[Rfam]
RNA sequence: CGGGGGUACAGCGACUGGCGGCACGGGAUGGGUUGAACCAUCGGGGAGCCUCGUCGCGGGAGCCGACCGCCUGGGCACCCGCG
Numbered sequence: 001c002g003g004g005g006g007u008a009c010a011g012c013g014a015c016u017g018g019c020g021g022c023a024c025g026g027g028a029u030g031g032g033u034u035g036a037a038c039c040a041u042c043g044g045g046g047a048g049c050c051u052c053g054u055c056g057c058g059g060g061a062g063c064c065g066a067c068c069g070c071c072u073g074g075g076c077a078c079c080c081g082c083g
Base pairs, nucleotide, nucleotide: 005055006054007053011049012048015045016044017071018070019069020068021067028041029040030039031038060078062076063075064074
Dot-bracket structure: ....[[[...[[..[[(((((......((((......))))..]]..]]...]]]....[.[[[..)))))..]]].].....